[Rfam]
Shown here is a 134-nucleotide sequence from butyrate-producing bacterium SM4/1, a member of the family "Ribosomal protein L10 leader". The literature on the family includes a 2008 paper in Biochemistry by Iben and Draper, "Specific interactions of the L10(L12)4 ribosomal protein complex with mRNA, rRNA, and L11". The base pairs follow the family's consensus structure, which was predicted with CMfinder. A search with the family's covariance model found it, with a score of 69 bits. Taxonomically the source falls in Eubacteriales (Bacteria, Bacillati, Bacillota, Clostridia).

RNA sequence: UUAUUCAAGUAUUGACUGCCUAAGACAGCAGGUGCCGCAAGGCAUAAGGUGAAAACGCCUGCCGAGGAAACGUACACUUACUGAUGUAAACGGUGCCUCCCUGUCUCUGGCAGGGAGGCUUUUUCUGUAAGACU
Numbered sequence: 001u002u003a004u005u006c007a008a009g010u011a012u013u014g015a016c017u018g019c020c021u022a023a024g025a026c027a028g029c030a031g032g033u034g035c036c037g038c039a040a041g042g043c044a045u046a047a048g049g050u051g052a053a054a055a056c057g058c059c060u061g062c063c064g065a066g067g068a069a070a071c072g073u074a075c076a077c078u079u080a081c082u083g084a085u086g087u088a089a090a091c092g093g094u095g096c097c098u099c100c101c102u103g104u105c106u107c108u109g110g111c112a113g114g115g116a117g118g119c120u121u122u123u124u125c126u127g128u129a130a131g132a133c134u
Base pairs, nucleotide, nucleotide: 028062029061030060031059032058033057034043035042036041095119096118097117098116099115100114101113102112103111104110
Dot-bracket structure: ...........................(((((((((....))).............))))))................................((((((((((.....))))))))))...............